RNA sequence: UCGGUUUUAUUUUUUCGUUCCUUGCUUCCCCAGGAUAACCGAGCUGAACAGGGAAGCUGAAUAAUCCGUAAGGAGCAACCCAUG
Numbered sequence: 001u002c003g004g005u006u007u008u009a010u011u012u013u014u015u016c017g018u019u020c021c022u023u024g025c026u027u028c029c030c031c032a033g034g035a036u037a038a039c040c041g042a043g044c045u046g047a048a049c050a051g052g053g054a055a056g057c058u059g060a061a062u063a064a065u066c067c068g069u070a071a072g073g074a075g076c077a078a079c080c081c082a083u084g
Stems, first nucleotide, its partner, number of pairs: 017076007024057006032045002
RNA: RpsF leader